[Rfam]
RNA sequence: AUCACGGAGGGUUUGAUCCCGGCUCAGGACGAACGCUGGCGGCGUGCCUAAUGCAUGCAAGUCGAGCGGGCUACAGUCUUCGGAUUGUAGCUUAGCGGCGAACGGGUGAGUAACACGUAGGUAAUCUACCCUUCAGAGGAGGACAACCUCAGGAAACUGAGGCUAAACCUUCAUACGUUCACUGGUAGGGAUACUGGUGAAGAAAGAGUUACCGUUGAGGUAGCUGCUGAAGGAUGAGCCUGCGGCCCAUCAGGUAGUUGGUGAGGUAACGGCUCACCAAGCCGAAGACGGGUAACCGGUCUGAGAGGAUGUCCGGUCACACUGGGACUGAGACACGGCCCAGACUCCUACGGGAGGCAGCAGCAGGGAAUCUUGGGCAAUGGGCGAAAGCCUGACCCAGCGACGCCGCGUGGAGGAAGAAGUCCUUCGGGGCGUAAACUCCUGGACUGGGGGACGAGUAAGGACGGUACCCCAGUAGAAAGGGACGGCUAACUACGUGCCAGCAGCCGCGGUAAAACGUAGGUCCCGAGCGUUGUUCGGAUUCACUG
Numbered sequence: 001a002u003c004a005c006g007g008a009g010g011g012u013u014u015g016a017u018c019c020c021g022g023c024u025c026a027g028g029a030c031g032a033a034c035g036c037u038g039g040c041g042g043c044g045u046g047c048c049u050a051a052u053g054c055a056u057g058c059a060a061g062u063c064g065a066g067c068g069g070g071c072u073a074c075a076g077u078c079u080u081c082g083g084a085u086u087g088u089a090g091c092u093u094a095g096c097g098g099c100g101a102a103c104g105g106g107u108g109a110g111u112a113a114c115a116c117g118u119a120g121g122u123a124a125u126c127u128a129c130c131c132u133u134c135a136g137a138g139g140a141g142g143a144c145a146a147c148c149u150c151a152g153g154a155a156a157c158u159g160a161g162g163c164u165a166a167a168c169c170u171u172c173a174u175a176c177g178u179u180c181a182c183u184g185g186u187a188g189g190g191a192u193a194c195u196g197g198u199g200a201a202g203a204a205a206g207a208g209u210u211a212c213c214g215u216u217g218a219g220g221u222a223g224c225u226g227c228u229g230a231a232g233g234a235u236g237a238g239c240c241u242g243c244g245g246c247c248c249a250u251c252a253g254g255u256a257g258u259u260g261g262u263g264a265g266g267u268a269a270c271g272g273c274u275c276a277c278c279a280a281g282c283c284g285a286a287g288a289c290g291g292g293u294a295a296c297c298g299g300u301c302u303g304a305g306a307g308g309a310u311g312u313c314c315g316g317u318c319a320c321a322c323u324g325g326g327a328c329u330g331a332g333a334c335a336c337g338g339c340c341c342a343g344a345c346u347c348c349u350a351c352g353g354g355a356g357g358c359a360g361c362a363g364c365a366g367g368g369a370a371u372c373u374u375g376g377g378c379a380a381u382g383g384g385c386g387a388a389a390g391c392c393u394g395a396c397c398c399a400g401c402g403a404c405g406c407c408g409c410g411u412g413g414a415g416g417a418a419g420a421a422g423u424c425c426u427u428c429g430g431g432g433c434g435u436a437a438a439c440u441c442c443u444g445g446a447c448u449g450g451g452g453g454a455c456g457a458g459u460a461a462g463g464a465c466g467g468u469a470c471c472c473c474a475g476u477a478g479a480a481a482g483g484g485a486c487g488g489c490u491a492a493c494u495a496c497g498u499g500c501c502a503g504c505a506g507c508c509g510c511g512g513u514a515a516a517a518c519g520u521a522g523g524u525c526c527c528g529a530g531c532g533u534u535g536u537u538c539g540g541a542u543u544c545a546c547u548g
Base pairs, nucleotide, nucleotide: 009025010024011023012022013021027538028537029536030535032534033533034532035531036530037529039409040408041407042406043405044404045402046401047367052365053364054363056362057361058360061099062098063097066096067095069092070091072089073088074087075086076085077084078083106320107319108318116244117243118242119241120240121239122238125237126236130233131232132231133230134229135228136227138172139171140170141169147162148161149160150159151158152157178201179200180199181198182197183196184195185194186193187192207225208224209223210222211221212220213219246292247291248290253283254282255281258280259279260278261277262276263275264274265273295317296316297315298314299310300309301308302307322343323342324341325340326339345356346355347354348353373399375398376397377396381394382393383392384391385390412442413441414440415439422433423432424431425430447475448474449473450472451471452470456465482527483526484525485524486523493522494521495520496519497518503510504509
A member of the RNA family "Bacterial small subunit ribosomal RNA" from Coprothermobacter proteolyticus, 548 nucleotides of a longer RNA. The sequence is in the family's curated seed alignment.